[Rfam]
RNA sequence: CGCGAUUCGUCAGGAGAGAGUGCCCCGCCACACCCGGUGAGCGGCACCGCCGAAGGCGCAGGCAACCGCCGAACGCUCAGGCAAAAGGACUGGCCAAGCGCC
Numbered sequence: 001c002g003c004g005a006u007u008c009g010u011c012a013g014g015a016g017a018g019a020g021u022g023c024c025c026c027g028c029c030a031c032a033c034c035c036g037g038u039g040a041g042c043g044g045c046a047c048c049g050c051c052g053a054a055g056g057c058g059c060a061g062g063c064a065a066c067c068g069c070c071g072a073a074c075g076c077u078c079a080g081g082c083a084a085a086a087g088g089a090c091u092g093g094c095c096a097a098g099c100g101c102c
Stems, first nucleotide, its partner, number of pairs: 006097002009094005020047004049082003052078002056076003062069002
The record is a 102-nucleotide sequence from Paenacidovorax caeni, which matches "Glycine riboswitch aptamer" in Rfam. Taxonomically the source falls in Paenacidovorax (Bacteria, Pseudomonadota, Burkholderiales, Comamonadaceae). Its family is annotated with glycine biosynthetic process in the Gene Ontology.